[Rfam]
Nucleotides: 114
Stems, first nucleotide, its partner, number of pairs: 004036005013030006047079003051075005057069004082109012
Number, partner (000 for none) and nucleotide at each position: 001000a002000u003000a004036u005035c006034c007033u008032u009000u010000a011000a012000c013030c014029u015028u016027g017026u018025c019000c020000c021000g022000u023000g024000a025018g026017g027016c028015a029014a030013g031000u032008a033007a034006g035005g036004a037000g038000a039000c040000g041000a042000c043000g044000a045000u046000a047079a048078a049077a050000g051075g052074g053073c054072u055071g056000g057069g058068u059067g060066c061000u062000u063000u064000u065000u066060g067059c068058a069057c070000a071055c072054g073053g074052u075051u076000a077049u078048u079047u080000g081000u082109g083108g084107a085106a086105u087104c088103u089102c090101c091100u092099u093098a094000g095000u096000u097000u098093u099092a100091a101090g102089g103088a104087g105086a106085u107084u108083u109082u110000u111000u112000c113000u114000a
Rfam assigns this 114-nucleotide sequence from Streptococcus hyointestinalis to the family "PyrR binding site". This family represents the PyrR binding site and terminator structure. This RNA structure is found upstream of a variety of genes involved in pyrimidine biosynthesis and transport. Pairs were carried over by alignment from the consensus structure, which is taken from published work.